[Rfam]
RNA sequence: CCUCCGCUCUCCCCGCACAGGAGGGCGGAACGAGGCCCAAGGCGCUCUCUGCCCUGACUGCGCCGGGCCUCCGAUCGACCGGCUUCGGGCCGGGGCUUGCCCCUACCGCACACGGGGCACCUCCCGGCCGGUAAACGGAGUCGGUUGAUGUCAGCUCCGGGCUGCGGUGCCGGACAGGUUGAGGGUCCUGUCCCGGCGC
Numbered sequence: 001c002c003u004c005c006g007c008u009c010u011c012c013c014c015g016c017a018c019a020g021g022a023g024g025g026c027g028g029a030a031c032g033a034g035g036c037c038c039a040a041g042g043c044g045c046u047c048u049c050u051g052c053c054c055u056g057a058c059u060g061c062g063c064c065g066g067g068c069c070u071c072c073g074a075u076c077g078a079c080c081g082g083c084u085u086c087g088g089g090c091c092g093g094g095g096c097u098u099g100c101c102c103c104u105a106c107c108g109c110a111c112a113c114g115g116g117g118c119a120c121c122u123c124c125c126g127g128c129c130g131g132u133a134a135a136c137g138g139a140g141u142c143g144g145u146u147g148a149u150g151u152c153a154g155c156u157c158c159g160g161g162c163u164g165c166g167g168u169g170c171c172g173g174a175c176a177g178g179u180u181g182a183g184g185g186u187c188c189u190g191u192c193c194c195g196g197c198g199c
Base pairs, nucleotide, nucleotide: 003029004028005027006026008024009023010022011021012020032071033070034069035068036067038065041064042063044061045060046057047056075148076147077146078145079144080143081142082141083140084139085138086137087136154168155167156166158164159163172193173192174191175190176189177188178187

The record is a 199-nucleotide RNA sequence from Streptomyces gilvosporeus, which matches "Streptomyces sRNA scr5239" in Rfam. Lineage of the source: Bacteria > Actinomycetota > Kitasatosporales > Streptomycetaceae > Streptomyces. It is annotated as a small RNA. Its family is annotated with negative regulation of translation and mRNA binding in the Gene Ontology. A reference for the family is Vockenhuber et al. (2015), "Identification of metE as a second target of the sRNA scr5239 in Streptomyces coelicolor", PLoS One.